[Rfam]
RNA sequence: UGGACCAAUGAUGAUAACUGGUGGCGUUUGAGUCAUGGAUGAUAAAUAAAAUGUGUCUGAAACUCUGAGGUCCAA
Numbered sequence: 001u002g003g004a005c006c007a008a009u010g011a012u013g014a015u016a017a018c019u020g021g022u023g024g025c026g027u028u029u030g031a032g033u034c035a036u037g038g039a040u041g042a043u044a045a046a047u048a049a050a051a052u053g054u055g056u057c058u059g060a061a062a063c064u065c066u067g068a069g070g071u072c073c074a075a
Base pairs, nucleotide, nucleotide: 002073003072004071005070006069
Shown here is a 75-nucleotide RNA sequence from Equus caballus, a member of the family "Small nucleolar RNA SNORD113/SNORD114 family". Rfam's curators write: The imprinted human domain at 14q32 contains two clusters of tandemly repeated small nucleolar RNAs named 14q(I) and 14q(II) snoRNAs. These two clusters are named SNORD113 and SNORD114 respectively in the HGNC approved gene symbol nomenclature. It scores 88 bits against the family's covariance model. A reference for the family is Cavaille et al. (2002), "Identification of tandemly-repeated C/D snoRNA genes at the imprinted human 14q32 domain reminiscent of those at the Prader-Willi/Angelman syndrome region", Hum Mol Genet. Rfam classes the family as a C/D-box small nucleolar RNA. The family is grouped with related families in Rfam's "SNORD74 clan".